[Rfam]
RNA: Small nucleolar RNA SNORA49
RNA sequence: UUUCCUCAGCCUUACUCCAGGGACUCCACAACCCAUGGAGUGUCUUGGCAUUGCCUGAGGAUACAGUGAAAGUGUGCCAAACUCGCUGUCCAGAAGGGUGCUUGGUUCCCUUUGAGGCCUAGAGUUGGAGCAAACAUA
Numbered sequence: 001u002u003u004c005c006u007c008a009g010c011c012u013u014a015c016u017c018c019a020g021g022g023a024c025u026c027c028a029c030a031a032c033c034c035a036u037g038g039a040g041u042g043u044c045u046u047g048g049c050a051u052u053g054c055c056u057g058a059g060g061a062u063a064c065a066g067u068g069a070a071a072g073u074g075u076g077c078c079a080a081a082c083u084c085g086c087u088g089u090c091c092a093g094a095a096g097g098g099u100g101c102u103u104g105g106u107u108c109c110c111u112u113u114g115a116g117g118c119c120u121a122g123a124g125u126u127g128g129a130g131c132a133a134a135c136a137u138a
Stems, first nucleotide, its partner, number of pairs: 003061007011053001017048006023041005073132003077128002086117001089116001091114003095111004